[Rfam]
Small nucleolar RNA SNORA5: a 134-nucleotide RNA from Phoenicopterus ruber. A search with the family's covariance model found it, with a score of 67 bits. From the family's description: ACA5 is a member of the H/ACA class of snoRNA that guide the sites of modification of uridines to pseudouridines.
RNA sequence: UGCAGCCCUGUCAAAUUCAGUCCCUGCCUCCUCCGUGGCGGGGACUGGAAAAAAACCACAGCGACUUCUGUAGUCCAUGGGCCCCGUGUCCCCUCCCGUGGGACCCCGGGGAUAAAAUCGUACCACAGACACUG
Numbered sequence: 001u002g003c004a005g006c007c008c009u010g011u012c013a014a015a016u017u018c019a020g021u022c023c024c025u026g027c028c029u030c031c032u033c034c035g036u037g038g039c040g041g042g043g044a045c046u047g048g049a050a051a052a053a054a055a056c057c058a059c060a061g062c063g064a065c066u067u068c069u070g071u072a073g074u075c076c077a078u079g080g081g082c083c084c085c086g087u088g089u090c091c092c093c094u095c096c097c098g099u100g101g102g103a104c105c106c107c108g109g110g111g112a113u114a115a116a117a118u119c120g121u122a123c124c125a126c127a128g129a130c131a132c133u134g
Stems, first nucleotide, its partner, number of pairs: 002056001018047011070126002073123002075120001082111005

Gene Ontology terms of the family: nucleolus and RNA processing. Pairs were carried over by alignment from the consensus structure, which was predicted with RNAfold.